[Rfam]
RNA sequence: GAAAGCAAAUGAUGCGACACAUCAAUCUUAUACUACACACUGAACAUUUUCAUGUAGAAAAACAACUCUCAAUUAUCUUGUGAUGCUUUU
Numbered sequence: 001g002a003a004a005g006c007a008a009a010u011g012a013u014g015c016g017a018c019a020c021a022u023c024a025a026u027c028u029u030a031u032a033c034u035a036c037a038c039a040c041u042g043a044a045c046a047u048u049u050u051c052a053u054g055u056a057g058a059a060a061a062a063c064a065a066c067u068c069u070c071a072a073u074u075a076u077c078u079u080g081u082g083a084u085g086c087u088u089u090u
Base pairs, nucleotide, nucleotide: 003088004087005086006085007084
Dot-bracket structure: ..(((((............................................................................)))))..
A member of the RNA family "Small nucleolar RNA R16" from Lactuca sativa, 90 nucleotides long.
The match comes from Rfam's covariance-model search (52 bits).
The family's RNA type in Rfam is C/D-box small nucleolar RNA.
The source organism's lineage runs through Eukaryota, Streptophyta, Gunneridae, Asterales and Lactuca.